Shown here is a 79-nucleotide RNA sequence from Cnephaeus nilssonii, a member of the family "mir-9198 microRNA precursor family". The source organism's lineage runs through Eukaryota, Metazoa, Eumetazoa, Mammalia and Cnephaeus.

RNA sequence: GCCGCUGCUUGCACCCACUGCCGGUGCCCAGUGCUGGUCCCAAUCACUUGGCAUUGUCAGUGGGUGUGAGCAGCGGCUG
Dot-bracket structure: ...(((((((((((((((((.(((((((.....................))))))).))))))))))))))))).....